The family of this 70-nucleotide sequence from Tombusvirus cynarae is "Tombus virus defective interfering (DI) RNA region 3". NCBI's taxonomy places the organism under Viruses, Kitrinoviricota, Tolucaviricetes, Tombusviridae, Tombusvirus cynarae. The base pairs follow the family's consensus structure, which is taken from published work. This family represents region 3 of the defective interfering (DI) RNA element of the Tombus viruses and is found in the 3' UTR. This family has been found to enhance DI RNA accumulation by approximately 10-fold as well as mediating viral replication.

[Rfam]
RNA sequence: AGCGAGUAGGACAGACUCUUCAGUCUGAUUCUGUGGAAAUGAGAGUAAUUCUGACAUAGCAUACAGGUUA
Numbered sequence: 001a002g003c004g005a006g007u008a009g010g011a012c013a014g015a016c017u018c019u020u021c022a023g024u025c026u027g028a029u030u031c032u033g034u035g036g037a038a039a040u041g042a043g044a045g046u047a048a049u050u051c052u053g054a055c056a057u058a059g060c061a062u063a064c065a066g067g068u069u070a
Base pairs, nucleotide, nucleotide: 011034012033013032014031015030017028018027048069050067051066052065053064